[Rfam]
RNA sequence: UGGCACGCAACGGCUUCCUGACGCGUGAGAUUGAAUUAUUGGAGCA
Numbered sequence: 001u002g003g004c005a006c007g008c009a010a011c012g013g014c015u016u017c018c019u020g021a022c023g024c025g026u027g028a029g030a031u032u033g034a035a036u037u038a039u040u041g042g043a044g045c046a
Stems, first nucleotide, its partner, number of pairs: 004027005011020002013045003017042002
Dot-bracket structure: ...(((((..(([[[.[[))..))))).............]]]]].
The family of this 46-nucleotide sequence is "SAM/SAH riboswitch aptamer".